[Rfam]
RNA sequence: UUGAAAGUUCCCUAGGGUUCCGCAGCAUCAAGGGUUGGCCUGGACCGAGAGGGGACGCGCAGAUUGUUCAGCUCUGCGUACACGGAGGGAAAAAAGCCCGGGAGGA
Number, nucleotide and partner (000 for none) at each position: 001u000002u000003g000004a000005a000006a000007g056008u055009u054010c053011c052012c051013u000014a000015g046016g045017g000018u000019u000020c043021c042022g040023c037024a036025g035026c034027a000028u032029c000030a000031a000032g028033g000034g026035u025036u024037g023038g000039c000040c022041u000042g021043g020044a000045c016046c015047g000048a000049g000050a000051g012052g011053g010054g009055a008056c007057g079058c078059g077060c076061a075062g074063a073064u000065u000066g000067u000068u000069c000070a000071g000072c000073u063074c062075u061076g060077c059078g058079u057080a000081c101082a000083c104084g000085g000086a000087g099088g098089g097090a000091a000092a000093a000094a000095a000096g000097c089098c088099c087100g000101g081102g000103a000104g083105g000106a000

The record is a 106-nucleotide sequence from Bacillus sp. T33-2, which matches "Guanidine-I riboswitch aptamer" in Rfam. It scores 84 bits against the family's covariance model. From the family's description: This family represents a conserved RNA structure found upstream of the ykkC and yxkD genes in Bacillus subtilis and related genes in other bacteria. The function of this family is unclear although it has been suggested that it may function to switch on efflux pumps and detoxification systems in response to harmful environmental molecules. For this family Rfam cites "New RNA motifs suggest an expanded scope for riboswitches in bacterial genetic control" (Barrick et al., Proc Natl Acad Sci U S A, 2004).